[Rfam]
RNA sequence: UGAUAACAGGGUCAAAAGUAUAAGAACACUGCAAGCUCGCUUGCAAGUGGGUGAAAUACUUUAAGACCCGCGGAAAUAUUCGGAUAAAAGUGGGACGUAAGUCACACUUUUAUCCGAAUAUUUCGGAGGAUUGUGGGAGUACGAAGUACGGAACAAUCCGUGUUAUCA
Numbered sequence: 001u002g003a004u005a006a007c008a009g010g011g012u013c014a015a016a017a018g019u020a021u022a023a024g025a026a027c028a029c030u031g032c033a034a035g036c037u038c039g040c041u042u043g044c045a046a047g048u049g050g051g052u053g054a055a056a057u058a059c060u061u062u063a064a065g066a067c068c069c070g071c072g073g074a075a076a077u078a079u080u081c082g083g084a085u086a087a088a089a090g091u092g093g094g095a096c097g098u099a100a101g102u103c104a105c106a107c108u109u110u111u112a113u114c115c116g117a118a119u120a121u122u123u124c125g126g127a128g129g130a131u132u133g134u135g136g137g138a139g140u141a142c143g144a145a146g147u148a149c150g151g152a153a154c155a156a157u158c159c160g161u162g163u164u165a166u167c168a
Stems, first nucleotide, its partner, number of pairs: 001168007010068004016061006024052001027049004031044005073124007082115004090107003094103003128159007139149004
The family of this 168-nucleotide sequence from Butyrivibrio sp. YAB3001 is "Clostridiales-1 RNA".
Pairs were carried over by alignment from the consensus structure, which is taken from published work.